[Rfam]
RNA: Plant signal recognition particle RNA
Organism: Theobroma cacao
RNA sequence: GCCGAGCUUGGUAGCGCAAGUUUGUGACCCAAGUGAGGGCAUUAUGGUGAUGGAAUGGUAAUCUUACUCACCGAGUCAGAUCCUAGGAGAUCAUGUGACUGGCCUGCCCAUUCCAAGCUUGGAGUUGAACUGUGAGACUUGAGCGAAGGCUAUGAGUCUCGUGGCUCUUAAGAGUGUAGGGCACCGCGUGAGGCUGGUUUCACAGAGCAGUGAAGAUUUCCGGCUCUUGGCAGUGGAAGGACAACAGGCCGGUGCUGCUUGGAUCCGAUAUGGCUUAGUGGGCUGAUCGUAACUGGACGACCACCUUU
Numbered sequence: 001g002c003c004g005a006g007c008u009u010g011g012u013a014g015c016g017c018a019a020g021u022u023u024g025u026g027a028c029c030c031a032a033g034u035g036a037g038g039g040c041a042u043u044a045u046g047g048u049g050a051u052g053g054a055a056u057g058g059u060a061a062u063c064u065u066a067c068u069c070a071c072c073g074a075g076u077c078a079g080a081u082c083c084u085a086g087g088a089g090a091u092c093a094u095g096u097g098a099c100u101g102g103c104c105u106g107c108c109c110a111u112u113c114c115a116a117g118c119u120u121g122g123a124g125u126u127g128a129a130c131u132g133u134g135a136g137a138c139u140u141g142a143g144c145g146a147a148g149g150c151u152a153u154g155a156g157u158c159u160c161g162u163g164g165c166u167c168u169u170a171a172g173a174g175u176g177u178a179g180g181g182c183a184c185c186g187c188g189u190g191a192g193g194c195u196g197g198u199u200u201c202a203c204a205g206a207g208c209a210g211u212g213a214a215g216a217u218u219u220c221c222g223g224c225u226c227u228u229g230g231c232a233g234u235g236g237a238a239g240g241a242c243a244a245c246a247g248g249c250c251g252g253u254g255c256u257g258c259u260u261g262g263a264u265c266c267g268a269u270a271u272g273g274c275u276u277a278g279u280g281g282g283c284u285g286a287u288c289g290u291a292a293c294u295g296g297a298c299g300a301c302c303a304c305c306u307u308u
Stems, first nucleotide, its partner, number of pairs: 001040003004023007028037001030035001044307001046305004051300001053298001056295002059291002061287003068281004073276005079265005085259001087258001090256001099252008108240002111238005117231003121227005127167002130164012142151003168174002175222002178219003187212003194205003